[Rfam]
RNA sequence: UGACGGGGGCCCGCACAAGCAGUGGAGCAUGUGGUUUAAUUCGACGCAACGCGCAGAACCUUACCAGGGCUAGACGGGACCGUGAGCCGCGCGAAAGCGCGGGGCUGCUUCGGCAGAGCGGUCGUCAGGUGCUGCAUGGUUGUCGUCAGCUCGUGUCGUGAGAUGUUGGGUUAAGUCCCGCAACGAGCGCAACCCUCGUCGGCUGUUGCCAGCGAUUCGGUCGGGCACUCAGCCGAGACAGCCGGGGACGACCCGGAGGAAGGUGGGGAUGACGUCAAAUCCGCAUGGCCUUCAUGUCCUGGGCUACACACGUGCUACAAUGGCGCCGACAACGGGCCGCGACCUCGCGAGGGGGAGCGAAUCCUUCAAACGGCGUCUCAGUUCGGAUUGCAGGCUGCAACUCGCCUGCAUGAAGCCGGAAUUGCUAGUAAUCGCGGAUCAGCAUGCCGCGGUGAAUCCGUUCCCGGGCCUUGUACACACCGCCCGUCACACCACGAGAGUCGGCCACACCCGAAGCCGGUCGGUCGAACCCCGUCAGGGGACGACCCCGUCGACGGUGGGGCGGAUGAUUGGGGUGAAGUCGUAACAAGG
Number, nucleotide and partner (000 for none) at each position: 001u477002g476003a474004c473005g472006g000007g471008g470009g469010c468011c467012c466013g465014c000015a461016c460017a000018a000019g425020c424021a423022g422023u421024g318025g000026a316027g315028c314029a313030u312031g311032u310033g309034g307035u306036u000037u000038a000039a000040u055041u000042c053043g052044a000045c000046g000047c000048a000049a000050c000051g000052c043053g042054c000055a040056g000057a000058a000059c000060c000061u000062u000063a000064c302065c301066a300067g299068g298069g297070c296071u000072a000073g000074a000075c000076g126077g125078g000079a122080c121081c120082g119083u118084g000085a000086g000087c102088c101089g100090c099091g098092c097093g000094a000095a000096a000097g092098c091099g090100c089101g088102g087103g000104g000105c116106u115107g114108c113109u000110u000111c000112g000113g108114c107115a106116g105117a000118g083119c082120g081121g080122u079123c000124g000125u077126c076127a000128g291129g290130u000131g289132c288133u287134g286135c000136a000137u285138g284139g280140u279141u278142g276143u000144c274145g273146u000147c000148a000149g188150c187151u186152c185153g184154u183155g164156u163157c162158g000159u000160g000161a000162g157163a156164u155165g000166u000167u180168g179169g178170g177171u000172u000173a000174a000175g000176u000177c170178c169179c168180g167181c000182a000183a154184c153185g152186a151187g150188c149189g000190c000191a000192a000193c000194c268195c267196u266197c265198g000199u236200c235201g234202g233203c232204u231205g230206u000207u000208g000209c225210c224211a000212g000213c223214g222215a221216u000217u000218c000219g000220g000221u215222c214223g213224g210225g209226c000227a000228c000229u000230c205231a204232g203233c202234c201235g200236a199237g000238a000239c259240a000241g000242c256243c255244g254245g253246g252247g000248a000249c000250g000251a000252c246253c245254c244255g243256g242257a000258g000259g239260a000261a000262g000263g000264u000265g197266g196267g195268g194269a000270u000271g000272a000273c145274g144275u000276c142277a000278a141279a140280u139281c000282c000283g000284c138285a137286u134287g133288g132289c131290c129291u128292u000293c000294a000295u000296g070297u069298c068299c067300u066301g065302g064303g000304c000305u000306a035307c034308a000309c033310a032311c031312g030313u029314g028315c027316u026317a000318c024319a000320a000321u000322g377323g376324c375325g374326c373327c372328g371329a000330c000331a000332a000333c000334g365335g364336g363337c000338c000339g358340c357341g000342a000343c000344c353345u352346c351347g000348c000349g000350a000351g346352g345353g344354g000355g000356a000357g340358c339359g000360a000361a000362u000363c336364c335365u334366u000367c000368a000369a000370a000371c328372g327373g326374c325375g324376u323377c322378u000379c000380a000381g000382u000383u000384c415385g000386g000387a000388u000389u410390g409391c408392a407393g406394g405395c404396u000397g000398c000399a000400a000401c000402u000403c000404g395405c394406c393407u392408g391409c390410a389411u000412g000413a000414a000415g384416c000417c000418g000419g000420a000421a023422u022423u021424g020425c019426u000427a000428g000429u000430a000431a453432u452433c451434g450435c449436g448437g447438a000439u000440c000441a000442g000443c000444a000445u000446g000447c437448c436449g435450c434451g433452g432453u431454g000455a000456a000457u000458c000459c000460g016461u015462u000463c000464c000465c013466g012467g011468g010469c009470c008471u007472u005473g004474u003475a000476c002477a001478c000479a000480c590481c000482g587483c000484c000485c583486g582487u000488c000489a000490c577491a576492c575493c574494a000495c572496g571497a570498g000499a000500g567501u566502c565503g000504g563505c562506c561507a000508c559509a558510c557511c556512c000513g000514a000515a000516g552517c000518c550519g549520g548521u000522c000523g000524g546525u545526c544527g543528a000529a000530c541531c540532c539533c538534g000535u000536c000537a000538g533539g532540g531541g530542a000543c527544g526545a525546c524547c000548c520549c519550g518551u000552c516553g000554a000555c000556g511557g510558u509559g508560g000561g506562g505563c504564g000565g502566a501567u500568g000569a000570u497571u496572g495573g000574g493575g492576u491577g490578a000579a000580g000581u000582c486583g485584u000585a000586a000587c482588a000589a000590g480591g000
Rfam assigns this 591-nucleotide part of an RNA from Sulfobacillus acidophilus to the family "Bacterial small subunit ribosomal RNA". The family is grouped with related families in Rfam's "SSU clan". Rfam 15.1 lists 42,628 matches to the family in 10,626 species. The source organism's lineage runs through Bacteria, Clostridia, Eubacteriales, Sulfobacillus and Sulfobacillus acidophilus.